This 86-nucleotide RNA sequence from Nitrosomonas sp. Nm84 belongs to the Rfam family "c-di-GMP-I riboswitch aptamer". It scores 70 bits against the family's covariance model. Pairs were carried over by alignment from the consensus structure, which is taken from published work. NCBI's taxonomy places the organism under Bacteria, Pseudomonadati, Nitrosomonadales, Nitrosomonadaceae, Nitrosomonas. GEMM was predicted in a large-scale screen for bacterial structured RNA regulatory elements.

[Rfam]
RNA sequence: AUUUGAAAAGGGCAAACCUCGUGAAAAUGAGGGACGCAAAGUCUAGGUCUACAGGGUUUAUACCUCAGGAUAGCAUGACUGCCAAA
Numbered sequence: 001a002u003u004u005g006a007a008a009a010g011g012g013c014a015a016a017c018c019u020c021g022u023g024a025a026a027a028u029g030a031g032g033g034a035c036g037c038a039a040a041g042u043c044u045a046g047g048u049c050u051a052c053a054g055g056g057u058u059u060a061u062a063c064c065u066c067a068g069g070a071u072a073g074c075a076u077g078a079c080u081g082c083c084a085a086a
Stems, first nucleotide, its partner, number of pairs: 012037002017032006040080004045076001046074001047071003054065004